[Rfam]
RNA sequence: AAAAAUUGAAGAGGUUGCAUUGCUCAUCAGUAGCUGUCUGGAGGCUGGCAAAAGCCGGAACGAUGGUGAAAGGGUGUGAUGCCGAAAUGCGGGGAUGUUUGCCCAUCUUCGACAUUGGGACGUAUACCGAAAGGGUGCGGACUGUCGCGUUUUUACGCGGGGAGCUUCAAGAAUG
Numbered sequence: 001a002a003a004a005a006u007u008g009a010a011g012a013g014g015u016u017g018c019a020u021u022g023c024u025c026a027u028c029a030g031u032a033g034c035u036g037u038c039u040g041g042a043g044g045c046u047g048g049c050a051a052a053a054g055c056c057g058g059a060a061c062g063a064u065g066g067u068g069a070a071a072g073g074g075u076g077u078g079a080u081g082c083c084g085a086a087a088u089g090c091g092g093g094g095a096u097g098u099u100u101g102c103c104c105a106u107c108u109u110c111g112a113c114a115u116u117g118g119g120a121c122g123u124a125u126a127c128c129g130a131a132a133g134g135g136u137g138c139g140g141a142c143u144g145u146c147g148c149g150u151u152u153u154u155a156c157g158c159g160g161g162g163a164g165c166u167u168c169a170a171g172a173a174u175g
Base pairs, nucleotide, nucleotide: 006170007169008168009167010166011165017082018081019080020079021078022077023076025074033067034066035065036064037063038062086116087115088114089113090111091110092109093108094107095106096105097104117143118142121139122138123137124136125135127133145160146159147158148157149156